[Rfam]
RNA sequence: CUGCAGGUAUGGAGACAUGGUGCCCAAGACCAUCAUGGGAAAGAUCUUCGGCUCCAUCUGCUCUCUCAGUGGUGUGCUGGUCAUUGCCCUGCCGGUGCCUGUCAUCGUGUCUAAC
Numbered sequence: 001c002u003g004c005a006g007g008u009a010u011g012g013a014g015a016c017a018u019g020g021u022g023c024c025c026a027a028g029a030c031c032a033u034c035a036u037g038g039g040a041a042a043g044a045u046c047u048u049c050g051g052c053u054c055c056a057u058c059u060g061c062u063c064u065c066u067c068a069g070u071g072g073u074g075u076g077c078u079g080g081u082c083a084u085u086g087c088c089c090u091g092c093c094g095g096u097g098c099c100u101g102u103c104a105u106c107g108u109g110u111c112u113a114a115c
Stems, first nucleotide, its partner, number of pairs: 002114001005112002008109005014103004019098001022096002038078002041075001050064002
A member of the RNA family "Potassium channel RNA editing signal" from Electrophorus electricus, 115 nucleotides long. It scores 86 bits against the family's covariance model. The source organism's lineage runs through Eukaryota, Opisthokonta, Craniata, Teleostomi and Electrophorus. The base pairs follow the family's consensus structure, which is taken from published work.